[Rfam]
RNA sequence: AGGAGAAUUGCUGGGCAAAUCUCCUUUGGCAGGAGUUGCACUGUAGGAUAGCGUGGUGCCAACCACACAAGAUUCCAAUAACAAUGGCUUCCUGCCAAUGGAGGUUUUGCCCUGUAAUUCAACU
Numbered sequence: 001a002g003g004a005g006a007a008u009u010g011c012u013g014g015g016c017a018a019a020u021c022u023c024c025u026u027u028g029g030c031a032g033g034a035g036u037u038g039c040a041c042u043g044u045a046g047g048a049u050a051g052c053g054u055g056g057u058g059c060c061a062a063c064c065a066c067a068c069a070a071g072a073u074u075c076c077a078a079u080a081a082c083a084a085u086g087g088c089u090u091c092c093u094g095c096c097a098a099u100g101g102a103g104g105u106u107u108u109g110c111c112c113u114g115u116a117a118u119u120c121a122a123c124u
Stems, first nucleotide, its partner, number of pairs: 005120005011114001013112007021103004027097009
Overview
Shown here is a 124-nucleotide RNA sequence from Trema orientale, a member of the family "mir-399 microRNA precursor family". It scores 62 bits against the family's covariance model. Rfam's curators write: mir-399 was identified in both Arabidopsis thaliana and Oryza sativa computationally and was later experimentally verified. mir-399 is thought to target mRNAs coding for a phosphatase transporter. For this family Rfam cites "Computational Identification of Plant MicroRNAs and Their Targets, Including a Stress-Induced miRNA" (Jones-Rhoades and Bartel, Mol Cell, 2004).